[Rfam]
This 114-nucleotide RNA from Clostridium sp. BL8 belongs to the Rfam family "FMN riboswitch aptamer (RFN element)". A search with the family's covariance model found it, with a score of 116 bits.

RNA sequence: AUAAAUCUUCAGGGCGGGGUGUAAGUCCCCACCGGCGGUAUAGCCCGCGAGCCGUAAGGCAGAUUCGGUGUAACUCCGAAGCCGACAGUAAAGUCUGGAUGAAAGAAGAAACUA
Numbered sequence: 001a002u003a004a005a006u007c008u009u010c011a012g013g014g015c016g017g018g019g020u021g022u023a024a025g026u027c028c029c030c031a032c033c034g035g036c037g038g039u040a041u042a043g044c045c046c047g048c049g050a051g052c053c054g055u056a057a058g059g060c061a062g063a064u065u066c067g068g069u070g071u072a073a074c075u076c077c078g079a080a081g082c083c084g085a086c087a088g089u090a091a092a093g094u095c096u097g098g099a100u101g102a103a104a105g106a107a108g109a110a111a112c113u114a
Stems, first nucleotide, its partner, number of pairs: 006109005017029003031094002033084002035048004043082002051060003064080005086097003
Dot-bracket structure: .....(((((......(((.......))).[[((((((....[[))))..(((....)))...(((((.......)))))]])).(((....]]))).......))))).....
Taxonomically the source falls in Clostridium (Bacteria, Bacillati, Bacillota, Clostridiaceae).
Gene Ontology term of the family: FMN binding.
A reference for the family is Gelfand et al. (1999), "A conserved RNA structure element involved in the regulation of bacterial riboflavin synthesis genes", Trends Genet.
The base pairs follow the family's consensus structure, which is taken from published work.